[Rfam]
RNA sequence: UGCUCAUCCAGAGGGGUGGAGGGACCGGCCCUGCGAAGCCCCGGCAACCCUCCCGGAGACGCGCUCGUGACGUGACGAGGCCGGCCGGGACAAGGUGCCAAAUCCGGUCUGCGGUCAAGGCGGCCGCAGGCGAAGAUGAGGG
Numbered sequence: 001u002g003c004u005c006a007u008c009c010a011g012a013g014g015g016g017u018g019g020a021g022g023g024a025c026c027g028g029c030c031c032u033g034c035g036a037a038g039c040c041c042c043g044g045c046a047a048c049c050c051u052c053c054c055g056g057a058g059a060c061g062c063g064c065u066c067g068u069g070a071c072g073u074g075a076c077g078a079g080g081c082c083g084g085c086c087g088g089g090a091c092a093a094g095g096u097g098c099c100a101a102a103u104c105c106g107g108u109c110u111g112c113g114g115u116c117a118a119g120g121c122g123g124c125c126g127c128a129g130g131c132g133a134a135g136a137u138g139a140g141g142g
Stems, first nucleotide, its partner, number of pairs: 001142001003140006013042005021031003025107004043099004048095002051090006103134001108130009

SAM riboswitch aptamer (S box leader): a 142-nucleotide sequence from Nonomuraea soli.